[Rfam]
RNA sequence: CAUAGCGAGCAGGGGAGCCGGAAAGGUCGGCUGAGAUAAAGAACCGUUAAAUUCUUUGACCCUUUAACCUGAUCUGGGUAAUGCCAGCGUAGGGAAGUGCCGGUUGAGCUUUA
Dot-bracket structure: ......(.((((((.((((((.....))))).......((((..........)))))..))))....((((..((((......))))..))))...)).).............